[Rfam]
RNA sequence: UGGUAACUUGAAUGCAAGUCGCUCUGGAUAAGGGCAUCUGCCAAAUGCCGUAAA
Numbered sequence: 001u002g003g004u005a006a007c008u009u010g011a012a013u014g015c016a017a018g019u020c021g022c023u024c025u026g027g028a029u030a031a032g033g034g035c036a037u038c039u040g041c042c043a044a045a046u047g048c049c050g051u052a053a054a
Base pairs, nucleotide, nucleotide: 013043014041015040016039021035022034023033024032025031
Dot-bracket structure: ............((((....(((((.....)))))...))).)...........
Rfam assigns this 54-nucleotide RNA from Denticeps clupeoides to the family "UnaL2 LINE 3' element". The source organism's lineage runs through Eukaryota, Metazoa, Eumetazoa, Craniata and Denticeps. Gene Ontology term of the family: transposition, RNA-mediated. About the family: The eel long interspersed element (LINE) UnaL2 and its partner short interspersed element (SINE) share a conserved 3' tail containing a stem-loop that is critical for their retrotransposition. Presumably, the first step of retrotransposition is the recognition of their 3' tails by UnaL2-encoded reverse transcriptase. The solution structure of a 17-nucleotide RNA derived from the 3' tail of UnaL2 was determined by NMR. By type it is a cis-regulatory element.